[Rfam]
RNA sequence: ACAAGGAGGAAGGCAAAUGCACAGCAUUUUAUAAAGGCCUUCCAACGUCCUGCCGCCGAACCUUCGGUGAGGGGGCGCUACAUAUU
Numbered sequence: 001a002c003a004a005g006g007a008g009g010a011a012g013g014c015a016a017a018u019g020c021a022c023a024g025c026a027u028u029u030u031a032u033a034a035a036g037g038c039c040u041u042c043c044a045a046c047g048u049c050c051u052g053c054c055g056c057c058g059a060a061c062c063u064u065c066g067g068u069g070a071g072g073g074g075g076c077g078c079u080a081c082a083u084a085u086u
Stems, first nucleotide, its partner, number of pairs: 008043006017027003052076003056072002060068002

This 86-nucleotide RNA sequence from bacterium D16-54 belongs to the Rfam family "GA-cis RNA". The base pairs follow the family's consensus structure, which is taken from published work. By type it is a small RNA. The match comes from Rfam's covariance-model search (54 bits).